[Rfam]
RNA sequence: GGCUGGCAACAGGCACGGGCGUCGGGGUAACCUUACGCCCGUGCAAGCAUGUUGAGGGCAGGAAGAGACAA
Number, nucleotide and partner (000 for none) at each position: 001g010002g000003c000004u000005g000006g000007c000008a000009a000010c001011a000012g000013g044014c043015a042016c041017g040018g039019g038020c037021g036022u000023c000024g033025g032026g031027g000028u000029a000030a000031c026032c025033u024034u000035a000036c021037g020038c019039c018040c017041g016042u015043g014044c013045a000046a000047g000048c000049a000050u000051g000052u000053u000054g000055a000056g000057g000058g000059c000060a000061g000062g000063a000064a000065g000066a000067g000068a000069c000070a000071a000

Shown here is a 71-nucleotide sequence from Acerihabitans arboris, a member of the family "tpke11". Gene Ontology term of the family: response to temperature stimulus. In Yersinia located in ICR upstream dnaJ (chaperone)gene. Has temperature responsive RNA structure. For this family Rfam cites "Computational identification of noncoding RNAs in E. coli by comparative genomics" (Rivas et al., Curr Biol, 2001). It scores 64 bits against the family's covariance model. The base pairs follow the family's consensus structure, which was predicted with WAR.